[Rfam]
RNA sequence: AAUAGGAGAAUGACAAAUCAUAUUUUUUUUCCAGAUAUUUAACAUUUUUAGUUGGAUUUGAAAAUCGGAAGGAAAAAGUUGAAUAUCAGGAGGAAAAAUUUGAUUUGUCAUUCUCCUAUU
Numbered sequence: 001a002a003u004a005g006g007a008g009a010a011u012g013a014c015a016a017a018u019c020a021u022a023u024u025u026u027u028u029u030u031c032c033a034g035a036u037a038u039u040u041a042a043c044a045u046u047u048u049u050a051g052u053u054g055g056a057u058u059u060g061a062a063a064a065u066c067g068g069a070a071g072g073a074a075a076a077a078g079u080u081g082a083a084u085a086u087c088a089g090g091a092g093g094a095a096a097a098a099u100u101u102g103a104u105u106u107g108u109c110a111u112u113c114u115c116c117u118a119u120u
Stems, first nucleotide, its partner, number of pairs: 001120020022099006029092004034087006041080002045076004

The family of this 120-nucleotide RNA from Gossypium stocksii is "MIR7504 microRNA precursor family". The family's consensus secondary structure was predicted with RNAalifold. Rfam 15.1 lists 7,343 matches to the family in 61 species. It scores 93 bits against the family's covariance model. Rfam links the family to the GO terms miRNA-mediated post-transcriptional gene silencing and RISC complex.